[Rfam]
RNA sequence: GGUAGUAGCAAAUAUUCAAAUGGGAAUUUUGAAGACUGAAGUGGGGAAAGGUUCCAUGUCAACAGUAAAUGAACAUGGGUAAGUCGAUCCUAACCUCCAAGCAUAGCUGUUAAUAAAACGAUUUUUUUGUUUUAGGGAGGGAAAGGGAAACUGGUUAAAAUUCCAGUACUUGGAUAUGGAAACGGUAACGUAAAGAAUGUGAAGACAUUGGAAUAAGUUCUGGAAAGAGUUUUCUUUUUUUUAUAACAUUCAAUAACCUUGGAAAUGGAUUAACCAGAGAGAAGGUUUGGGAAUGGAAUAGUCACGACUCGUUUGUGGCCCAGUGCACUUGUUACAAUCCUUGAAAAUUCACAUAUCUAUCCAUGCCAAGUCGUACUCAUAUCCGCAGCAGGUCUCCAAGGUUAACAGCCUCUAGUUGA
Numbered sequence: 001g002g003u004a005g006u007a008g009c010a011a012a013u014a015u016u017c018a019a020a021u022g023g024g025a026a027u028u029u030u031g032a033a034g035a036c037u038g039a040a041g042u043g044g045g046g047a048a049a050g051g052u053u054c055c056a057u058g059u060c061a062a063c064a065g066u067a068a069a070u071g072a073a074c075a076u077g078g079g080u081a082a083g084u085c086g087a088u089c090c091u092a093a094c095c096u097c098c099a100a101g102c103a104u105a106g107c108u109g110u111u112a113a114u115a116a117a118a119c120g121a122u123u124u125u126u127u128u129g130u131u132u133u134a135g136g137g138a139g140g141g142a143a144a145g146g147g148a149a150a151c152u153g154g155u156u157a158a159a160a161u162u163c164c165a166g167u168a169c170u171u172g173g174a175u176a177u178g179g180a181a182a183c184g185g186u187a188a189c190g191u192a193a194a195g196a197a198u199g200u201g202a203a204g205a206c207a208u209u210g211g212a213a214u215a216a217g218u219u220c221u222g223g224a225a226a227g228a229g230u231u232u233u234c235u236u237u238u239u240u241u242u243a244u245a246a247c248a249u250u251c252a253a254u255a256a257c258c259u260u261g262g263a264a265a266u267g268g269a270u271u272a273a274c275c276a277g278a279g280a281g282a283a284g285g286u287u288u289g290g291g292a293a294u295g296g297a298a299u300a301g302u303c304a305c306g307a308c309u310c311g312u313u314u315g316u317g318g319c320c321c322a323g324u325g326c327a328c329u330u331g332u333u334a335c336a337a338u339c340c341u342u343g344a345a346a347a348u349u350c351a352c353a354u355a356u357c358u359a360u361c362c363a364u365g366c367c368a369a370g371u372c373g374u375a376c377u378c379a380u381a382u383c384c385g386c387a388g389c390a391g392g393u394c395u396c397c398a399a400g401g402u403u404a405a406c407a408g409c410c411u412c413u414a415g416u417u418g419a
Stems, first nucleotide, its partner, number of pairs: 015033006034417004043397004049377002054078006063071002085373003089146002094140002096113001099111001101110003120133002150167005170369004175365005181358001182191003198353006207338004212333007220323003224242005247295005256286005266276003302318006383392002399411004
RNA: Eukaryotic large subunit ribosomal RNA, nucleotides 1226 to 1644